[Rfam]
RNA sequence: AUUGCUUCAUAAUGGUGAACUCUCUUAGAUUACAAAAGUGAGAGAUGUUCAAGUUUCCGGAGCAAAGAUAAAACUGGCCAGAAUUUAAACAGCACUGUGUUAAUGUAUCUCUUUAAUGUUCACAGUGUUACCUGUCUUCUGGUAUAUUU
Numbered sequence: 001a002u003u004g005c006u007u008c009a010u011a012a013u014g015g016u017g018a019a020c021u022c023u024c025u026u027a028g029a030u031u032a033c034a035a036a037a038g039u040g041a042g043a044g045a046u047g048u049u050c051a052a053g054u055u056u057c058c059g060g061a062g063c064a065a066a067g068a069u070a071a072a073a074c075u076g077g078c079c080a081g082a083a084u085u086u087a088a089a090c091a092g093c094a095c096u097g098u099g100u101u102a103a104u105g106u107a108u109c110u111c112u113u114u115a116a117u118g119u120u121c122a123c124a125g126u127g128u129u130a131c132c133u134g135u136c137u138u139c140u141g142g143u144a145u146a147u148u149u
Stems, first nucleotide, its partner, number of pairs: 003064006016051005021045005077143007091129003095125005

The record is a 149-nucleotide RNA from Raphanus sativus, which matches "small nucleolar RNA snoR137" in Rfam. The base pairs follow the family's consensus structure, which was predicted with RNAalifold. Rfam classes the family as an H/ACA-box small nucleolar RNA. Rfam links the family to the GO terms nucleolus and RNA processing. It scores 148 bits against the family's covariance model. The literature on the family includes a 2009 paper in Nucleic Acids Res by Chen and Wu, "Mining small RNA sequencing data: a new approach to identify small nucleolar RNAs in Arabidopsis".